RNA sequence: GGGCACACGGUGGAUGCCUUGGCACCUAGAGUCGAAGAAGGACGUGAACGGCUGCGAUAAGCCGCGGUGAGGCGCUGAAUAGCCUUUGACCCGCGGAUUUCCGAAUGGGGAAACCCAGCGCUGGUAAUGCGGCGUUACCUCCCGGUGAACACAUAGCCGGGUUGGAGACAAGCGGGGGAAGUGAAACAUCUCAGUACCCCGAGGAAAGUAAAUCAACCGAGACUCCCUGAGUAGUGGCGAGCGAAAAGGGAUCAGCCCAAACUUGUUGCGUGUAAGCAGUCACGCGUUGCGCAGCAGGGGUUGUAGGGCGUUUGUUCCGGGUCGUGACUGGCCCGGCGGAAGUUACAAAGUCAUGCGGUAGUCGAAGAGCCUGGAACGGCUCACCAAAGAGGGCAACCGUCCCGUAGACGAAACCACAUGAUCUUCCGUCAAGCGUUCCUGAGUAAGUCCGCGCCCGUGAAACGCGGACUGAAGCUGGGGGGACCACCCUCCAAGGCUAAGUACUCCUAGGUGACCGAUAGCGGACUAGUACCGUGAGGGAAAGGUGAAAAGUACCCCGGAAGGGGAGUGAAAUAGUACCUGAAACCGCGUGCCUACAAG
Numbered sequence: 001g002g003g004c005a006c007a008c009g010g011u012g013g014a015u016g017c018c019u020u021g022g023c024a025c026c027u028a029g030a031g032u033c034g035a036a037g038a039a040g041g042a043c044g045u046g047a048a049c050g051g052c053u054g055c056g057a058u059a060a061g062c063c064g065c066g067g068u069g070a071g072g073c074g075c076u077g078a079a080u081a082g083c084c085u086u087u088g089a090c091c092c093g094c095g096g097a098u099u100u101c102c103g104a105a106u107g108g109g110g111a112a113a114c115c116c117a118g119c120g121c122u123g124g125u126a127a128u129g130c131g132g133c134g135u136u137a138c139c140u141c142c143c144g145g146u147g148a149a150c151a152c153a154u155a156g157c158c159g160g161g162u163u164g165g166a167g168a169c170a171a172g173c174g175g176g177g178g179a180a181g182u183g184a185a186a187c188a189u190c191u192c193a194g195u196a197c198c199c200c201g202a203g204g205a206a207a208g209u210a211a212a213u214c215a216a217c218c219g220a221g222a223c224u225c226c227c228u229g230a231g232u233a234g235u236g237g238c239g240a241g242c243g244a245a246a247a248g249g250g251a252u253c254a255g256c257c258c259a260a261a262c263u264u265g266u267u268g269c270g271u272g273u274a275a276g277c278a279g280u281c282a283c284g285c286g287u288u289g290c291g292c293a294g295c296a297g298g299g300g301u302u303g304u305a306g307g308g309c310g311u312u313u314g315u316u317c318c319g320g321g322u323c324g325u326g327a328c329u330g331g332c333c334c335g336g337c338g339g340a341a342g343u344u345a346c347a348a349a350g351u352c353a354u355g356c357g358g359u360a361g362u363c364g365a366a367g368a369g370c371c372u373g374g375a376a377c378g379g380c381u382c383a384c385c386a387a388a389g390a391g392g393g394c395a396a397c398c399g400u401c402c403c404g405u406a407g408a409c410g411a412a413a414c415c416a417c418a419u420g421a422u423c424u425u426c427c428g429u430c431a432a433g434c435g436u437u438c439c440u441g442a443g444u445a446a447g448u449c450c451g452c453g454c455c456c457g458u459g460a461a462a463c464g465c466g467g468a469c470u471g472a473a474g475c476u477g478g479g480g481g482g483a484c485c486a487c488c489c490u491c492c493a494a495g496g497c498u499a500a501g502u503a504c505u506c507c508u509a510g511g512u513g514a515c516c517g518a519u520a521g522c523g524g525a526c527u528a529g530u531a532c533c534g535u536g537a538g539g540g541a542a543a544g545g546u547g548a549a550a551a552g553u554a555c556c557c558c559g560g561a562a563g564g565g566g567a568g569u570g571a572a573a574u575a576g577u578a579c580c581u582g583a584a585a586c587c588g589c590g591u592g593c594c595u596a597c598a599a600g
Base pairs, nucleotide, nucleotide: 001595002594003593004592005591006590008588009587010586016580017545018544021516022515023513024512025511026510027509028508029507030505031504032168033167040102041101042100043056044055045054062096063095064094065093066092067091071084072083073082107116108115109114117136118135119134120133121132122131123130138165139164141161142160143159144158145157146156173201174200175199176198177197183190184189213220214219223501224251225250226249227248228247234242235241254498255497256496257495262298263297264296265295266294267293268292269291270290271289272288305440306439307438310434311433312432313431314430347425348424350422351421352420353419354418355417357415358414359413361409362408363407367382368381369380370379371378385389391403392402393401446470447469448468449467450466451465452464453463477492478491479490480489481488532539533538555566556565557564558563

Shown here is a 600-nucleotide part of an RNA from Conexibacter woesei, a member of the family "Bacterial large subunit ribosomal RNA". It is one of the family's seed sequences. The organism belongs to Conexibacter woesei, within Bacteria. For this family Rfam cites "Crystal structure of the ribosome at 5.5 A resolution" (Yusupov et al., Science, 2001).